This 587-nucleotide part of an RNA from Chondromyces crocatus belongs to the Rfam family "Bacterial large subunit ribosomal RNA".
It is one of the family's seed sequences.
Lineage of the source: Bacteria > Pseudomonadati > Polyangiales > Polyangiaceae > Chondromyces.
Gene Ontology terms of the family: ribosome and structural constituent of ribosome.

RNA sequence: CCCGCGGCAAGACGGAAAGACCCCAUGAACCUUUACUGCAGCUUGGCAGUGAUUUUCGGGAUAUUCUGCGUAGGAUAGGUGGGAGGCUAUGAGGCCGGGCUUCUGGGUUCGGCGGAGCCGACGUUGAAAUACCACCCUGGAUAUUCUGGAAAUCUAACCUAGACCCGUGAUCCGGGUUGGGGACACUGCCUGGUGGGCAGUUUGACUGGGGCGGUCGCCUCCCAAAAAGUAACGGAGGCGUGCGAAGGUUCCCUCAGCCUGAUUGGAAACCAGGCGUAGAGUGCAAACGCAUAAGGGAGCUUAACUGUGAGACCGACAGGUCGAACAGGUGCGAAAGCAGGCGUUAGUGAUCCGGUGGUUCUGUAUGGAAGGGCCAUCGCUCAUCGGAUAAAAGGUACUCUGGGGAUAACAGGCUGAUCGCGCCUGAGAGUUCACAUCGGCGGCGCGGUUUGGCACCUCGAUGUCGGCCCAUCGCAUCCUGGGGCUGGAGCAGGUCCCAAGGGUUCGGCUGUUCGCCGAUUAAAGCGGUACGCGAGCUGGGUUUAAAACGUCGUGAGACAGUUUGGUCCCUAUCUGCCGUGGGCGUA
Numbered sequence: 001c002c003c004g005c006g007g008c009a010a011g012a013c014g015g016a017a018a019g020a021c022c023c024c025a026u027g028a029a030c031c032u033u034u035a036c037u038g039c040a041g042c043u044u045g046g047c048a049g050u051g052a053u054u055u056u057c058g059g060g061a062u063a064u065u066c067u068g069c070g071u072a073g074g075a076u077a078g079g080u081g082g083g084a085g086g087c088u089a090u091g092a093g094g095c096c097g098g099g100c101u102u103c104u105g106g107g108u109u110c111g112g113c114g115g116a117g118c119c120g121a122c123g124u125u126g127a128a129a130u131a132c133c134a135c136c137c138u139g140g141a142u143a144u145u146c147u148g149g150a151a152a153u154c155u156a157a158c159c160u161a162g163a164c165c166c167g168u169g170a171u172c173c174g175g176g177u178u179g180g181g182g183a184c185a186c187u188g189c190c191u192g193g194u195g196g197g198c199a200g201u202u203u204g205a206c207u208g209g210g211g212c213g214g215u216c217g218c219c220u221c222c223c224a225a226a227a228a229g230u231a232a233c234g235g236a237g238g239c240g241u242g243c244g245a246a247g248g249u250u251c252c253c254u255c256a257g258c259c260u261g262a263u264u265g266g267a268a269a270c271c272a273g274g275c276g277u278a279g280a281g282u283g284c285a286a287a288c289g290c291a292u293a294a295g296g297g298a299g300c301u302u303a304a305c306u307g308u309g310a311g312a313c314c315g316a317c318a319g320g321u322c323g324a325a326c327a328g329g330u331g332c333g334a335a336a337g338c339a340g341g342c343g344u345u346a347g348u349g350a351u352c353c354g355g356u357g358g359u360u361c362u363g364u365a366u367g368g369a370a371g372g373g374c375c376a377u378c379g380c381u382c383a384u385c386g387g388a389u390a391a392a393a394g395g396u397a398c399u400c401u402g403g404g405g406a407u408a409a410c411a412g413g414c415u416g417a418u419c420g421c422g423c424c425u426g427a428g429a430g431u432u433c434a435c436a437u438c439g440g441c442g443g444c445g446c447g448g449u450u451u452g453g454c455a456c457c458u459c460g461a462u463g464u465c466g467g468c469c470c471a472u473c474g475c476a477u478c479c480u481g482g483g484g485c486u487g488g489a490g491c492a493g494g495u496c497c498c499a500a501g502g503g504u505u506c507g508g509c510u511g512u513u514c515g516c517c518g519a520u521u522a523a524a525g526c527g528g529u530a531c532g533c534g535a536g537c538u539g540g541g542u543u544u545a546a547a548a549c550g551u552c553g554u555g556a557g558a559c560a561g562u563u564u565g566g567u568c569c570c571u572a573u574c575u576g577c578c579g580u581g582g583g584c585g586u587a
Stems, first nucleotide, its partner, number of pairs: 001583008010575003014570002022404004027400002029396005035201004042193002045190004051154016068137001078136005085119003094113008158181003162178006204216004217239006240385001242342002248300006254280002257275005281290002305328004311322003330339003353379007361372002413454003417451001418448007428438002465540001466538003470532001471529005478503002481498006505519005546564004550559003

Rfam 15.1 lists 51,934 matches to the family in 10,816 species.